[Rfam]
RNA sequence: UUUAUGUAUAGGUCUUUAGAUCACCUGAUGUUGAAUAUUCUUUAGAUGAUCUAAAGGCCUAUGCAUAAA
Numbered sequence: 001u002u003u004a005u006g007u008a009u010a011g012g013u014c015u016u017u018a019g020a021u022c023a024c025c026u027g028a029u030g031u032u033g034a035a036u037a038u039u040c041u042u043u044a045g046a047u048g049a050u051c052u053a054a055a056g057g058c059c060u061a062u063g064c065a066u067a068a069a
Stems, first nucleotide, its partner, number of pairs: 002068006009061015026044003030040001

Rfam assigns this 69-nucleotide RNA from Cebus imitator to the family "mir-1245 microRNA precursor family". Pairs were carried over by alignment from the consensus structure, which was predicted with RNAalifold.